[Rfam]
RNA: Molybdenum/Tungsten riboswitch aptamer (Moco RNA motif)
Organism: Caloramator mitchellensis
RNA sequence: UUUAACAAUAUUCUCCGAGUUCAUAAUCCUAAGGCACAGCUAUGGAUUAUGAACCGAUAGGGUAGAAUUGGAAACGGUUCUGCCUCCCGAUGGAAAGGAGAAGCUGAGCAAUAGUAU
Numbered sequence: 001u002u003u004a005a006c007a008a009u010a011u012u013c014u015c016c017g018a019g020u021u022c023a024u025a026a027u028c029c030u031a032a033g034g035c036a037c038a039g040c041u042a043u044g045g046a047u048u049a050u051g052a053a054c055c056g057a058u059a060g061g062g063u064a065g066a067a068u069u070g071g072a073a074a075c076g077g078u079u080c081u082g083c084c085u086c087c088c089g090a091u092g093g094a095a096a097g098g099a100g101a102a103g104c105u106g107a108g109c110a111a112u113a114g115u116a117u
Stems, first nucleotide, its partner, number of pairs: 003111001006108001011102006019054011033041003060085011086093002